[Rfam]
RNA sequence: AUCUCUAUAAUACUCCGGUUUUUUGGUGAAGUGAGAUUGUGUUUUUUAAAUGUCAUAAAAGACGUUUAUUAGAAACUGGGUUGUUGUCCCGGAGGGGAAUCUAGUUUGAAGGCACAAACGCUUUGGUGUUCAAUUU
Numbered sequence: 001a002u003c004u005c006u007a008u009a010a011u012a013c014u015c016c017g018g019u020u021u022u023u024u025g026g027u028g029a030a031g032u033g034a035g036a037u038u039g040u041g042u043u044u045u046u047u048a049a050a051u052g053u054c055a056u057a058a059a060a061g062a063c064g065u066u067u068a069u070u071a072g073a074a075a076c077u078g079g080g081u082u083g084u085u086g087u088c089c090c091g092g093a094g095g096g097g098a099a100u101c102u103a104g105u106u107u108g109a110a111g112g113c114a115c116a117a118a119c120g121c122u123u124u125g126g127u128g129u130u131c132a133a134u135u136u
Base pairs, nucleotide, nucleotide: 009130010129011128012127013126028124029123030122031121032120033119038116039115040114041113042112047068048067049066050065051064052063053062054061073107074106075105076104077103079101080100081099087098088097089096090095
Shown here is a 136-nucleotide RNA from Marinomonas mediterranea, a member of the family "nqrA-Marinomonas RNA". The base pairs follow the family's consensus structure, which is taken from published work. Rfam's curators put it in the seed alignment.